[Rfam]
RNA: Glycine riboswitch aptamer
RNA sequence: CUCCCAUGGUCAGGAGAGAGCCCCGCCAGCCGGGGCCGCCGAAGGCGCAGGGGUUUCCCGAACGCUCAGGCAAAAGGACUGACACAGCGCU
Numbered sequence: 001c002u003c004c005c006a007u008g009g010u011c012a013g014g015a016g017a018g019a020g021c022c023c024c025g026c027c028a029g030c031c032g033g034g035g036c037c038g039c040c041g042a043a044g045g046c047g048c049a050g051g052g053g054u055u056u057c058c059c060g061a062a063c064g065c066u067c068a069g070g071c072a073a074a075a076g077g078a079c080u081g082a083c084a085c086a087g088c089g090c091u
Base pairs, nucleotide, nucleotide: 009083010082011081012080013079020036021035022034023033038071039070040069041067042066045065046064047063051059052058